traJ-II RNA: a 101-nucleotide RNA from Shewanella sp. SNU WT4.
Lineage of the source: Bacteria > Pseudomonadota > Gammaproteobacteria > Alteromonadales > Shewanella.
By type it is a cis-regulatory element.
[Rfam]
RNA sequence: AGGCAGGAUAGGUGAAGUACAUGUACACGCAAGCGGUUACAAUGUUCUUCACUUUGGCCUUAUUCGCACUGCGUGCUCAACGUCUCCUGCUCUGCGAGGCU
Numbered sequence: 001a002g003g004c005a006g007g008a009u010a011g012g013u014g015a016a017g018u019a020c021a022u023g024u025a026c027a028c029g030c031a032a033g034c035g036g037u038u039a040c041a042a043u044g045u046u047c048u049u050c051a052c053u054u055u056g057g058c059c060u061u062a063u064u065c066g067c068a069c070u071g072c073g074u075g076c077u078c079a080a081c082g083u084c085u086c087c088u089g090c091u092c093u094g095c096g097a098g099g100c101u
Base pairs, nucleotide, nucleotide: 002091003090004089005088006087007086008085012052013051014050015049016048017047019045020044021043024039025038028035029034057083058082066076067075068074069073